[Rfam]
RNA sequence: CUGUCUAUAUAGGGGGUCAUUGUAGAAGCGUGCUGAUCGCGACCCCUGCCAGCCCUUUUCAGGGCUGCAAUUCUACA
Number, nucleotide and partner (000 for none) at each position: 001c000002u000003g000004u000005c000006u000007a000008u000009a000010u000011a000012g000013g046014g045015g044016g043017u042018c041019a000020u000021u077022g076023u075024a074025g073026a072027a071028g040029c039030g038031u000032g000033c000034u000035g000036a000037u000038c030039g029040c028041g018042a017043c016044c015045c014046c013047u000048g000049c000050c067051a066052g065053c064054c063055c062056u061057u000058u000059u000060c000061a056062g055063g054064g053065c052066u051067g050068c000069a000070a000071u027072u026073c025074u024075a023076c022077a021

Source information: A member of the RNA family "Mammalian CPEB3 ribozyme" from Parnassius apollo, 77 nucleotides long. For this family Rfam cites "Autocatalytic RNA cleavage in the human beta-globin pre-mRNA promotes transcription termination" (Teixeira et al., Nature, 2004). The family has 14 seed sequences and 5,706 matches in Rfam 15.1. From the family's description: The mammalian CPEB3 ribozyme is a self cleaving RNA located in the second intron of the CPEB3 gene which belongs to a family of genes regulating messenger RNA polyadenylation. This ribozyme is highly conserved and found only in mammals. The CPEB3 ribozyme is structurally and biochemically related to the human hepatitis delta virus (HDV) ribozyme and the HDV ribozyme is proposed to have arisen from the human transcriptome. A search with the family's covariance model found it, with a score of 53 bits.